[Rfam]
RNA sequence: UUGUUGAAGAAGAAGCACCCGCUUCUCACCUGGAUGACGCUACAUGCUGUUAUCAGGUAACAGAAUCAUUAAUUACUUUGAUACUGUCAGUGUGGGUGUAUUUAUAUGCCCACACUUUUUUGUUGGG
Numbered sequence: 001u002u003g004u005u006g007a008a009g010a011a012g013a014a015g016c017a018c019c020c021g022c023u024u025c026u027c028a029c030c031u032g033g034a035u036g037a038c039g040c041u042a043c044a045u046g047c048u049g050u051u052a053u054c055a056g057g058u059a060a061c062a063g064a065a066u067c068a069u070u071a072a073u074u075a076c077u078u079u080g081a082u083a084c085u086g087u088c089a090g091u092g093u094g095g096g097u098g099u100a101u102u103u104a105u106a107u108g109c110c111c112a113c114a115c116u117u118u119u120u121u122g123u124u125g126g127g
Stems, first nucleotide, its partner, number of pairs: 011026006028058003036051003039047002091114010

A member of the RNA family "Ribosomal protein L20 leader", 127 nucleotides long. Its family is annotated with regulation of gene expression in the Gene Ontology. By type it is a cis-regulatory leader. The literature on the family includes a 1994 paper in Prog Nucleic Acid Res Mol Biol by Zengel and Lindahl, "Diverse mechanisms for regulating ribosomal protein synthesis in Escherichia coli". Rfam's curators write: This family is a putative r-protein leader autoregulatory structure found in B. subtilis and other low-GC Gram-positive bacteria.